[Rfam]
RNA sequence: AUACUCCCUCUGUAAACUAAUAUAAGAGUGUUUAGAUCACUACUUCAGUGAUCUAAACACUCUCACAUUAGUUUACGGAGGGAGUAU
Numbered sequence: 001a002u003a004c005u006c007c008c009u010c011u012g013u014a015a016a017c018u019a020a021u022a023u024a025a026g027a028g029u030g031u032u033u034a035g036a037u038c039a040c041u042a043c044u045u046c047a048g049u050g051a052u053c054u055a056a057a058c059a060c061u062c063u064c065a066c067a068u069u070a071g072u073u074u075a076c077g078g079a080g081g082g083a084g085u086a087u
Base pairs, nucleotide, nucleotide: 003085004084005083007081008080009079010078011077013075014074015073016072017071019069020068021067023065025063026062027061028060029059030058031057032056033055034054035053036052037051038050039049040048041047
The family of this 87-nucleotide RNA sequence from Triticum aestivum is "MIR1120/MIR1122 microRNA precursor family". A reference for the family is Yao et al. (2007), "Cloning and characterization of microRNAs from wheat (Triticum aestivum L.)", Genome Biol. The family has 6 seed sequences and 44,765 matches in Rfam 15.1. Pairs were carried over by alignment from the consensus structure, which was predicted with RNAalifold. Taxonomically the source falls in Triticum (Eukaryota, Magnoliopsida, Petrosaviidae, commelinids). Gene Ontology terms of the family: miRNA-mediated post-transcriptional gene silencing and RISC complex. A search with the family's covariance model found it, with a score of 86 bits.